[Rfam]
The record is a 68-nucleotide RNA sequence, which matches "Cyano-1 RNA" in Rfam. It is annotated as a small RNA. Pairs were carried over by alignment from the consensus structure, which is taken from published work.
RNA sequence: AUCUGUGUGAAGGAGUGGUUUUUUGAAACAGUGGAAACAAGGAAACACUUGAUUUAGGAAACCAUAAA
Numbered sequence: 001a002u003c004u005g006u007g008u009g010a011a012g013g014a015g016u017g018g019u020u021u022u023u024u025g026a027a028a029c030a031g032u033g034g035a036a037a038c039a040a041g042g043a044a045a046c047a048c049u050u051g052a053u054u055u056a057g058g059a060a061a062c063c064a065u066a067a068a
Stems, first nucleotide, its partner, number of pairs: 015065006023057002029051002031048003